RNA sequence: AAGAGAGCCAUCUGUUGACAGUUUGCCUUUGAAAUUACUGUCAUGGAGUUGCUCUCUUA
Numbered sequence: 001a002a003g004a005g006a007g008c009c010a011u012c013u014g015u016u017g018a019c020a021g022u023u024u025g026c027c028u029u030u031g032a033a034a035u036u037a038c039u040g041u042c043a044u045g046g047a048g049u050u051g052c053u054c055u056c057u058u059a
Base pairs, nucleotide, nucleotide: 001058002057003056004055006053007052008051011047012046013045014044017042018041019040021038022037
This 59-nucleotide sequence from Panagrellus redivivus belongs to the Rfam family "mir-46/mir-47/mir-281 microRNA precursor family". The organism belongs to Panagrellus, within Eukaryota.